Shown here is an 89-nucleotide RNA sequence from Denitratisoma sp. DHT3, a member of the family "Burkholderia RNA 7 (anti-hemB)".
It is annotated as a small RNA.
It scores 66 bits against the family's covariance model.
Its family is annotated with bacterial biofilm matrix and protein binding in the Gene Ontology.
Rfam describes the family as follows. This RNA motif was identified by computational search in b-proteobacteria Burkholderia. Co-purified with Hfq, expression confirmed by Northern blot.
RNA sequence: CCUCCCGCUUCACCUCCCUAAGCGGGUGCCUUAAUCCCCUUAAGGCGUUUCGCCCUCGGCUUCCUCCCCUUGGCCGAGGGCUUUUUCUU
Numbered sequence: 001c002c003u004c005c006c007g008c009u010u011c012a013c014c015u016c017c018c019u020a021a022g023c024g025g026g027u028g029c030c031u032u033a034a035u036c037c038c039c040u041u042a043a044g045g046c047g048u049u050u051c052g053c054c055c056u057c058g059g060c061u062u063c064c065u066c067c068c069c070u071u072g073g074c075c076g077a078g079g080g081c082u083u084u085u086u087c088u089u
Base pairs, nucleotide, nucleotide: 004026005025006024007023008022009021028046029045030044031043032042033041034040052081053080054079055078056077057076058075059074060073061072